Shown here is a 93-nucleotide RNA from Nicotiana tabacum, a member of the family "MIR6152 microRNA precursor family". The family's consensus secondary structure was predicted with RNAalifold. It scores 66 bits against the family's covariance model.
RNA sequence: UGGACAGAUUACUGUAUUCGACUGUAUUCACGUGAAACAUGGGAUUACACUAUUAUUAAACGGAAGGUAUAUCAAUUAACAUAAUAGACUCCU
Numbered sequence: 001u002g003g004a005c006a007g008a009u010u011a012c013u014g015u016a017u018u019c020g021a022c023u024g025u026a027u028u029c030a031c032g033u034g035a036a037a038c039a040u041g042g043g044a045u046u047a048c049a050c051u052a053u054u055a056u057u058a059a060a061c062g063g064a065a066g067g068u069a070u071a072u073c074a075a076u077u078a079a080c081a082u083a084a085u086a087g088a089c090u091c092c093u
Stems, first nucleotide, its partner, number of pairs: 002092003009087003013083003017079002020077002023074002026072002030068001031062003034056001036054002039051001